[Rfam]
RNA sequence: AGACAGUUCUUGGAAUUUAUGUGUGAUGGUCUCGUUCGUUGUCAUGGCUGUCUAUCGCUGCCUUGCCGACCACUCUAUAUAUCACCACCCAUGUUCUGAGUUU
Numbered sequence: 001a002g003a004c005a006g007u008u009c010u011u012g013g014a015a016u017u018u019a020u021g022u023g024u025g026a027u028g029g030u031c032u033c034g035u036u037c038g039u040u041g042u043c044a045u046g047g048c049u050g051u052c053u054a055u056c057g058c059u060g061c062c063u064u065g066c067c068g069a070c071c072a073c074u075c076u077a078u079a080u081a082u083c084a085c086c087a088c089c090c091a092u093g094u095u096c097u098g099a100g101u102u103u
Stems, first nucleotide, its partner, number of pairs: 001103004050063001
RNA: Small nucleolar RNA Z43